Shown here is a 173-nucleotide RNA from Carnobacterium antarcticum, a member of the family "Group II catalytic intron D1-D4-3".
RNA sequence: UCUUUCGCGAGAAAGAAUCCGAAGGAAGCUGGACGCAAACACUCGCCCUGACGAACAGAAAUCUCAUACAAGGCUGGAUGGAGAUGGACGAGCUUGCCAAACAAAGCGAAGUCCGAUACUGCACGAGUCUCCUACAGUAAAUGAGGCAGUGACAUGAGUGGAAGGUUAUAACU
Numbered sequence: 001u002c003u004u005u006c007g008c009g010a011g012a013a014a015g016a017a018u019c020c021g022a023a024g025g026a027a028g029c030u031g032g033a034c035g036c037a038a039a040c041a042c043u044c045g046c047c048c049u050g051a052c053g054a055a056c057a058g059a060a061a062u063c064u065c066a067u068a069c070a071a072g073g074c075u076g077g078a079u080g081g082a083g084a085u086g087g088a089c090g091a092g093c094u095u096g097c098c099a100a101a102c103a104a105a106g107c108g109a110a111g112u113c114c115g116a117u118a119c120u121g122c123a124c125g126a127g128u129c130u131c132c133u134a135c136a137g138u139a140a141a142u143g144a145g146g147c148a149g150u151g152a153c154a155u156g157a158g159u160g161g162a163a164g165g166u167u168a169u170a171a172c173u
Stems, first nucleotide, its partner, number of pairs: 001016006028173001030171001032169001035166002040160006046151001048149003062146006073138003080132005086114004092107004
From the family's description: Group II introns are found in rRNA, tRNA and mRNA of organelles in fungi, plants and protists, and also in mRNA in bacteria. Pairs were carried over by alignment from the consensus structure. The source organism's lineage runs through Bacteria, Bacillati, Bacillota, Carnobacteriaceae and Carnobacterium.